[Rfam]
RNA sequence: AGAUCUUAAUCGCUUAAUUCCGAUUGGAAACGGAGGAACCAAUAUUUACGUGGCUCAGCCACUCGGGGUGAAUCCAUAAUUUAUGGUAGGGCAACUCUUUAUGCCCGAAUCCGACAGCUAACUCCGUAAGCGUUUAGAGAGAGGAUGG
Numbered sequence: 001a002g003a004u005c006u007u008a009a010u011c012g013c014u015u016a017a018u019u020c021c022g023a024u025u026g027g028a029a030a031c032g033g034a035g036g037a038a039c040c041a042a043u044a045u046u047u048a049c050g051u052g053g054c055u056c057a058g059c060c061a062c063u064c065g066g067g068g069u070g071a072a073u074c075c076a077u078a079a080u081u082u083a084u085g086g087u088a089g090g091g092c093a094a095c096u097c098u099u100u101a102u103g104c105c106c107g108a109a110u111c112c113g114a115c116a117g118c119u120a121a122c123u124c125c126g127u128a129a130g131c132g133u134u135u136a137g138a139g140a141g142a143g144g145a146u147g148g
Base pairs, nucleotide, nucleotide: 011132012131013130014129018029019028020027030127031126032125033124034123035122040065066112067111068110074086075085076084077083089106090105091104092103